Shown here is a 291-nucleotide part of an RNA from Bodo saltans, a member of the family "Eukaryotic large subunit ribosomal RNA". Rfam links the family to the GO terms ribosome and structural constituent of ribosome. Pairs were carried over by alignment from the consensus structure, which is taken from published work. Lineage of the source: Eukaryota > Euglenozoa > Kinetoplastea > Bodonidae > Bodo. A search with the family's covariance model found it, with a score of 2031 bits.
RNA sequence: GAGUCAAACAGACGCGCAAGGGAGAAGAUAUUGUUGCCAGUACUUCUCUCGUACUGAAAGGGAGAUGCGAAUGCAUCCAUGGUGUGCACACACAAAUGCCCAACACCGACCGGCCCUCCGUGGGUUGAGUUCGAGUGUGCCUGUUUGGACCCGAAAGGUGGUGAACUAUGCCUGAACAAGGUGAAGCCGGGGGAAACCCAGGUGGAGGCCUGUAGCGAUGCUGACGUGCAAAUCGCUCGCACGAUUUGGGUAUCGGAGCGAAAGACUCAUCGAACCACCUAGUAGCUGGUU
Numbered sequence: 001g002a003g004u005c006a007a008a009c010a011g012a013c014g015c016g017c018a019a020g021g022g023a024g025a026a027g028a029u030a031u032u033g034u035u036g037c038c039a040g041u042a043c044u045u046c047u048c049u050c051g052u053a054c055u056g057a058a059a060g061g062g063a064g065a066u067g068c069g070a071a072u073g074c075a076u077c078c079a080u081g082g083u084g085u086g087c088a089c090a091c092a093c094a095a096a097u098g099c100c101c102a103a104c105a106c107c108g109a110c111c112g113g114c115c116c117u118c119c120g121u122g123g124g125u126u127g128a129g130u131u132c133g134a135g136u137g138u139g140c141c142u143g144u145u146u147g148g149a150c151c152c153g154a155a156a157g158g159u160g161g162u163g164a165a166c167u168a169u170g171c172c173u174g175a176a177c178a179a180g181g182u183g184a185a186g187c188c189g190g191g192g193g194a195a196a197c198c199c200a201g202g203u204g205g206a207g208g209c210c211u212g213u214a215g216c217g218a219u220g221c222u223g224a225c226g227u228g229c230a231a232a233u234c235g236c237u238c239g240c241a242c243g244a245u246u247u248g249g250g251u252a253u254c255g256g257a258g259c260g261a262a263a264g265a266c267u268c269a270u271c272g273a274a275c276c277a278c279c280u281a282g283u284a285g286c287u288g289g290u291u
Stems, first nucleotide, its partner, number of pairs: 005147007013139005020050003025045003054061002081107005089098002109130002111127006150289002153286001157279006166255001168253009177243001179211004186203003190199003215240004220236002223234002257267002